[Rfam]
RNA sequence: UAAUGGAAUAGGUCGGGCAGUUAGGCCCUGCUCAGCACCUGUAAUGUAGGCCUUUAACAGGGACCGAAUGUGAGGGCGUCCGGUCAGACCAACGCGGGCCCCACAAGCCAACUGAGAAACCUCGUCCUUCGGGGGCGGCGGUUCGCUGAUGCCUGCCGCAGGGCACGGACUGAAGUGAUUCGUCGCCAGCACCCCGUCAGGCGCGGAAGCGAGCAGCGGACUGGUGAACGUGCGUCGCUCGAAGGGUCGCGGGGUGGAGGAGGCAACUGGGACUCCCCGUGGCGGAACGCCGGGCAAUCUCGAUUUCCACUU
Numbered sequence: 001u002a003a004u005g006g007a008a009u010a011g012g013u014c015g016g017g018c019a020g021u022u023a024g025g026c027c028c029u030g031c032u033c034a035g036c037a038c039c040u041g042u043a044a045u046g047u048a049g050g051c052c053u054u055u056a057a058c059a060g061g062g063a064c065c066g067a068a069u070g071u072g073a074g075g076g077c078g079u080c081c082g083g084u085c086a087g088a089c090c091a092a093c094g095c096g097g098g099c100c101c102c103a104c105a106a107g108c109c110a111a112c113u114g115a116g117a118a119a120c121c122u123c124g125u126c127c128u129u130c131g132g133g134g135g136c137g138g139c140g141g142u143u144c145g146c147u148g149a150u151g152c153c154u155g156c157c158g159c160a161g162g163g164c165a166c167g168g169a170c171u172g173a174a175g176u177g178a179u180u181c182g183u184c185g186c187c188a189g190c191a192c193c194c195c196g197u198c199a200g201g202c203g204c205g206g207a208a209g210c211g212a213g214c215a216g217c218g219g220a221c222u223g224g225u226g227a228a229c230g231u232g233c234g235u236c237g238c239u240c241g242a243a244g245g246g247u248c249g250c251g252g253g254g255u256g257g258a259g260g261a262g263g264c265a266a267c268u269g270g271g272a273c274u275c276c277c278c279g280u281g282g283c284g285g286a287a288c289g290c291c292g293g294g295c296a297a298u299c300u301c302g303a304u305u306u307c308c309a310c311u312u
Base pairs, nucleotide, nucleotide: 002311004309005308006307007306008305011065012064013063014062015033016032017031018030019029020028038061039060040059041058042057044055071302072301073300074299075298078295079294080293081292082290089285090284093281094280095279096278097277098276100271101270102269103268107264108263109262112259113258119255120254121253122252123251124250125249126245127244128243129242130241131240132239133238134236135235136234137233138231139230140229141180143178144177145176146175147174148171150169152167154165155164156163157162183227184226185225186224187223188222189221194219195218196217197216202211203210204209